[Rfam]
RNA sequence: UAACCCGUGUCGGAAGGCACGGCUGAACUGGCAGGAGGAAGCUUUGGGCAUAGUACCCUGGGGGUCAUGAACUCCAGGGGAAGGCC
Numbered sequence: 001u002a003a004c005c006c007g008u009g010u011c012g013g014a015a016g017g018c019a020c021g022g023c024u025g026a027a028c029u030g031g032c033a034g035g036a037g038g039a040a041g042c043u044u045u046g047g048g049c050a051u052a053g054u055a056c057c058c059u060g061g062g063g064g065u066c067a068u069g070a071a072c073u074c075c076a077g078g079g080g081a082a083g084g085c086c
Base pairs, nucleotide, nucleotide: 001025002024005022006021007020008019009018010017011016038045039044047086048085049084056079057078058077059076060075061074
The record is an 86-nucleotide sequence from Thermanaeromonas toyohensis, which matches "Group II catalytic intron D1-D4-1" in Rfam. Pairs were carried over by alignment from the consensus structure. NCBI's taxonomy places the organism under Bacteria, Bacillati, Bacillota, Neomoorellaceae, Thermanaeromonas toyohensis.